RNA sequence: GACAUUUCAGGGCGAACCUGGUCGAAAGACAGGGGCGCAAAGCCAAGGGUCUACGGGUUACUACCUAUGACAGCCUGGUCGCCUGA
Numbered sequence: 001g002a003c004a005u006u007u008c009a010g011g012g013c014g015a016a017c018c019u020g021g022u023c024g025a026a027a028g029a030c031a032g033g034g035g036c037g038c039a040a041a042g043c044c045a046a047g048g049g050u051c052u053a054c055g056g057g058u059u060a061c062u063a064c065c066u067a068u069g070a071c072a073g074c075c076u077g078g079u080c081g082c083c084u085g086a
Stems, first nucleotide, its partner, number of pairs: 012038002017033004022029002042079003046076003049071003056065003